A member of the RNA family "Small nucleolar RNA SNORA31" from Phyllostomus discolor, 126 nucleotides long.
For this family Rfam cites "RNomics: an experimental approach that identifies 201 candidates for novel, small, non-messenger RNAs in mouse" (Huttenhofer et al., EMBO J, 2001).
Its family is annotated with RNA processing and nucleolus in the Gene Ontology.
A search with the family's covariance model found it, with a score of 86 bits.
Rfam's curators write: ACA31 (SNORA31) belongs to the H/ACA class of snoRNAs which are thought to guide the sites of modification of uridines to pseudouridines.

RNA sequence: UCGCAUCCAGGAAUAGACCUUAAACAAUCUCGUGUUGUUCUUUUGGUUUGCACUGGGAUGCAAAAGAAAAAAAUCCCUGCACUCUCUGUCUUUGUGGCAGCCUGCAUGGAGUGGGGGACUACAUCU
Numbered sequence: 001u002c003g004c005a006u007c008c009a010g011g012a013a014u015a016g017a018c019c020u021u022a023a024a025c026a027a028u029c030u031c032g033u034g035u036u037g038u039u040c041u042u043u044u045g046g047u048u049u050g051c052a053c054u055g056g057g058a059u060g061c062a063a064a065a066g067a068a069a070a071a072a073a074u075c076c077c078u079g080c081a082c083u084c085u086c087u088g089u090c091u092u093u094g095u096g097g098c099a100g101c102c103u104g105c106a107u108g109g110a111g112u113g114g115g116g117g118a119c120u121a122c123a124u125c126u
Stems, first nucleotide, its partner, number of pairs: 003061006014050006023039006074118005082109001085106001086100005